[Rfam]
RNA sequence: ACAGUGCCAUGGCCGUCUGAGCUAAGGUCUGAUAAAAAAGCAAAAGGCGCAGAGAUCUGCGCCUUUUUU
Numbered sequence: 001a002c003a004g005u006g007c008c009a010u011g012g013c014c015g016u017c018u019g020a021g022c023u024a025a026g027g028u029c030u031g032a033u034a035a036a037a038a039a040g041c042a043a044a045a046g047g048c049g050c051a052g053a054g055a056u057c058u059g060c061g062c063c064u065u066u067u068u069u
Base pairs, nucleotide, nucleotide: 002019003018004017006013007012042067043066044065045064046063047062048061049060050059051058052057
Salmonella enterica sRNA STnc40: a 69-nucleotide RNA from Enterobacteriaceae bacterium strain FGI 57.
It is annotated as a small RNA.